[Rfam]
The family of this 305-nucleotide RNA sequence from Solanum tuberosum is "Plant signal recognition particle RNA".
RNA sequence: GCCGAGCCGUGUAACGUGGGCUUGUAACCUAAGUGGGGGCAACAAUGUGAUGGGAUGUUAGGCUGUUUCAGAUGGCAGGGCUUCGGUUGGCAUUAGUCUGGCCUGCCCUAUCCAAGCAUGGAGUUGAGUCAUCUGGUUCAGACGAAAGUAUGGACUGCUUGUCUCUUAGAGUGGGGUGGACUGCGUGAGGCUGGUUUCACAGAGCAACGAAUAGUUCCCGCUCUAUGCAGUGGGAAGGAUAACGAGUCAGUGCUCUCCAAGUCCAACAAAAACCUGAUGGGCUGCCUAAUUAAACCACCACUUUU
Numbered sequence: 001g002c003c004g005a006g007c008c009g010u011g012u013a014a015c016g017u018g019g020g021c022u023u024g025u026a027a028c029c030u031a032a033g034u035g036g037g038g039g040c041a042a043c044a045a046u047g048u049g050a051u052g053g054g055a056u057g058u059u060a061g062g063c064u065g066u067u068u069c070a071g072a073u074g075g076c077a078g079g080g081c082u083u084c085g086g087u088u089g090g091c092a093u094u095a096g097u098c099u100g101g102c103c104u105g106c107c108c109u110a111u112c113c114a115a116g117c118a119u120g121g122a123g124u125u126g127a128g129u130c131a132u133c134u135g136g137u138u139c140a141g142a143c144g145a146a147a148g149u150a151u152g153g154a155c156u157g158c159u160u161g162u163c164u165c166u167u168a169g170a171g172u173g174g175g176g177u178g179g180a181c182u183g184c185g186u187g188a189g190g191c192u193g194g195u196u197u198c199a200c201a202g203a204g205c206a207a208c209g210a211a212u213a214g215u216u217c218c219c220g221c222u223c224u225a226u227g228c229a230g231u232g233g234g235a236a237g238g239a240u241a242a243c244g245a246g247u248c249a250g251u252g253c254u255c256u257c258c259a260a261g262u263c264c265a266a267c268a269a270a271a272a273c274c275u276g277a278u279g280g281g282c283u284g285c286c287u288a289a290u291u292a293a294a295c296c297a298c299c300a301c302u303u304u305u
Base pairs, nucleotide, nucleotide: 001040002039003038004023005022006021007020008019028037029036030035044304045303047301048300049299051297052296053295056292057291058289059288060287061286062285063284065282066281068280069279070278074274075273078264079263080262081261082260083259085257086256089254090253098250099249100248101247102246104244105243107238108237111235112234113232114231116228117227118226119225120224121223122222123221124220126165127164128163130161131160134157135156136155137154138153139152140151142149143148166171173218174217175216176215177214182211184209185208186207191202192201193200
NCBI's taxonomy places the organism under Eukaryota, Streptophyta, Magnoliopsida, Solanaceae, Solanum.